[Rfam]
RNA: mir-458 microRNA precursor family
RNA sequence: GUACUGAUGGCAGCACCAUUCCAAGAGCUGUGAGCACGACGCCGUUGAUAGCUCCGGGAAUGGCGCUGCCGUCGGCAC
Numbered sequence: 001g002u003a004c005u006g007a008u009g010g011c012a013g014c015a016c017c018a019u020u021c022c023a024a025g026a027g028c029u030g031u032g033a034g035c036a037c038g039a040c041g042c043c044g045u046u047g048a049u050a051g052c053u054c055c056g057g058g059a060a061u062g063g064c065g066c067u068g069c070c071g072u073c074g075g076c077a078c
Stems, first nucleotide, its partner, number of pairs: 002077001004075001007072003011068003016063006025054007